[Rfam]
RNA: SAM riboswitch aptamer (S box leader)
RNA sequence: UUCUUAUCAAGAGAGGUGGAGGGACUGGCCCUAAGAUACCUCGGCAGCAGACUUUGUAGUACUGUGCCAAUUCCAGCGAGCGAAUGCUUGAUAGAUAAGAA
Number, nucleotide and partner (000 for none) at each position: 001u101002u100003c099004u098005u097006a096007u095008c094009a000010a000011g000012a000013g042014a041015g040016g039017u038018g000019g000020a000021g031022g030023g029024a000025c076026u075027g074028g073029c023030c022031c021032u000033a000034a000035g000036a000037u000038a017039c016040c015041u014042c013043g068044g067045c066046a065047g000048c064049a063050g000051a060052c059053u058054u000055u000056g000057u000058a053059g052060u051061a000062c000063u049064g048065u046066g045067c044068c043069a000070a000071u000072u093073c028074c027075a026076g025077c090078g089079a088080g087081c086082g000083a000084a000085u000086g081087c080088u079089u078090g077091a000092u000093a072094g008095a007096u006097a005098a004099g003100a002101a001